[Rfam]
RNA sequence: ACAGAUUCACUCUGUACCCAGCUGUAGCCCCAGGUGGGUGCUUUUUCUGUCUGCCACAGAGACAUCUCCAAGUGUUGUAACCACCUUGACCUGUCAGGGCAGUGCAACCCUCUGGGGACUCAGGG
Numbered sequence: 001a002c003a004g005a006u007u008c009a010c011u012c013u014g015u016a017c018c019c020a021g022c023u024g025u026a027g028c029c030c031c032a033g034g035u036g037g038g039u040g041c042u043u044u045u046u047c048u049g050u051c052u053g054c055c056a057c058a059g060a061g062a063c064a065u066c067u068c069c070a071a072g073u074g075u076u077g078u079a080a081c082c083a084c085c086u087u088g089a090c091c092u093g094u095c096a097g098g099g100c101a102g103u104g105c106a107a108c109c110c111u112c113u114g115g116g117g118a119c120u121c122a123g124g125g
Stems, first nucleotide, its partner, number of pairs: 002053005014041007022033003066116003071111002074108006084099003

Small nucleolar RNA SNORA77: a 125-nucleotide RNA sequence from Nyctereutes procyonoides. Rfam classes the family as an H/ACA-box small nucleolar RNA. Taxonomically the source falls in Nyctereutes (Eukaryota, Euteleostomi, Amniota, Laurasiatheria). Gene Ontology terms of the family: nucleolus and RNA processing. A search with the family's covariance model found it, with a score of 89 bits. From the family's description: ACA63 (SNORA77) is a member of the H/ACA class of snoRNAs that guide the sites of modification of uridines to pseudouridines.